[Rfam]
The family of this 61-nucleotide sequence is "cow-rumen-1 RNA". By type it is a small RNA. The sequence is in the family's curated seed alignment.

RNA sequence: CCAACGGUCGCUGAGUUAGAGCUUAACAGCGUAAAUCCGUCGCCUGACAUGUUCGAAGAGG
Number, nucleotide and partner (000 for none) at each position: 001c000002c000003a000004a040005c039006g038007g037008u000009c031010g030011c029012u028013g027014a023015g022016u021017u000018a000019g000020a000021g016022c015023u014024u000025a000026a000027c013028a012029g011030c010031g009032u000033a000034a000035a000036u000037c007038c006039g005040u004041c000042g000043c000044c000045u000046g000047a000048c000049a000050u000051g000052u000053u000054c000055g000056a000057a000058g000059a000060g000061g000